A member of the RNA family "RtT RNA" from Yersinia pseudotuberculosis, 125 nucleotides long. Pairs were carried over by alignment from the consensus structure, which is taken from published work. Rfam classes the family as a cis-regulatory element. This family represents a bacterial cis-regulatory element known as RtT RNA. The exact function of RtT is unknown although it is thought that it may be involved in changing the cellular response in relation to amino acid starvation. The organism belongs to Yersinia pseudotuberculosis, within Bacteria. For this family Rfam cites "A novel RNA product of the tyrT operon of Escherichia coli" (Bosl and Kersten, Nucleic Acids Res, 1991). Its family is annotated with cellular response to amino acid starvation in the Gene Ontology.
RNA sequence: CGAGUAUCAGGAUGAUACGAGUAAAAUCUGCGUUCAGGUUCGAGCCGAGCGAAGCGAGACAGCAACGCGUCAGCGUUGACCCGAAGGGCGAGGCCAGAGGCCGAGUCAUCCCGCACGACCCACCA
Numbered sequence: 001c002g003a004g005u006a007u008c009a010g011g012a013u014g015a016u017a018c019g020a021g022u023a024a025a026a027u028c029u030g031c032g033u034u035c036a037g038g039u040u041c042g043a044g045c046c047g048a049g050c051g052a053a054g055c056g057a058g059a060c061a062g063c064a065a066c067g068c069g070u071c072a073g074c075g076u077u078g079a080c081c082c083g084a085a086g087g088g089c090g091a092g093g094c095c096a097g098a099g100g101c102c103g104a105g106u107c108a109u110c111c112c113g114c115a116c117g118a119c120c121c122a123c124c125a
Base pairs, nucleotide, nucleotide: 016115018113019112021110022108031090032089034088035087039085040084041083042082046056047055063078064077065076066075067074068073